The family of this 74-nucleotide sequence from Agromyces rhizosphaerae is "tRNA". From the family's description: Transfer RNA (tRNA) molecules are approximately 80 nucleotides in length. It scores 59 bits against the family's covariance model. The organism belongs to Agromyces, within Bacteria. Its family is annotated with triplet codon-amino acid adaptor activity in the Gene Ontology.

RNA sequence: GCUCCCGUAGCCCAACUGGCAGAGGCAGGCGACUUAAACUCGCCCGAGUCUGGGUUCGAAUCCCAGCGGGAGCA
Numbered sequence: 001g002c003u004c005c006c007g008u009a010g011c012c013c014a015a016c017u018g019g020c021a022g023a024g025g026c027a028g029g030c031g032a033c034u035u036a037a038a039c040u041c042g043c044c045c046g047a048g049u050c051u052g053g054g055u056u057c058g059a060a061u062c063c064c065a066g067c068g069g070g071a072g073c074a
Stems, first nucleotide, its partner, number of pairs: 001073007010026003028044005050066005